[Rfam]
Overview:
mir-1 microRNA precursor family: a 92-nucleotide sequence from Leptidea sinapis. This family represents the microRNA (miRNA) mir-1 family. miRNAs are transcribed as ~70nt precursors (modelled here) and subsequently processed by the Dicer enzyme to give a ~22nt product. In this case the mature sequence comes from the 3' arm of the precursor. The extents of the hairpin precursors are not generally known and are estimated based on hairpin prediction. The products are thought to have regulatory roles through complementarity to mRNA. The involvement of Dicer in miRNA processing suggests a relationship with the phenomenon of RNA interference. miRNAs are numbered based on the sequence of the mature RNA. This family also contains the mir-206 from human, which appears to be related to mir-1. Rfam 15.1 lists 4,474 matches to the family in 965 species. Rfam links the family to the GO terms RISC complex and miRNA-mediated post-transcriptional gene silencing. For this family Rfam cites "An extensive class of small RNAs in Caenorhabditis elegans" (Lee and Ambros, Science, 2001).
RNA sequence: UACCGUACUCCAAACUUCUUUAUGCUCAAAAAACUGUUUAAAAAAAACUAUUAAAACAGUUUUUUGAGCAUAAAGAAGUUUGGAGUACGGUA
Numbered sequence: 001u002a003c004c005g006u007a008c009u010c011c012a013a014a015c016u017u018c019u020u021u022a023u024g025c026u027c028a029a030a031a032a033a034c035u036g037u038u039u040a041a042a043a044a045a046a047a048c049u050a051u052u053a054a055a056a057c058a059g060u061u062u063u064u065u066g067a068g069c070a071u072a073a074a075g076a077a078g079u080u081u082g083g084a085g086u087a088c089g090g091u092a
Stems, first nucleotide, its partner, number of pairs: 007086019027066013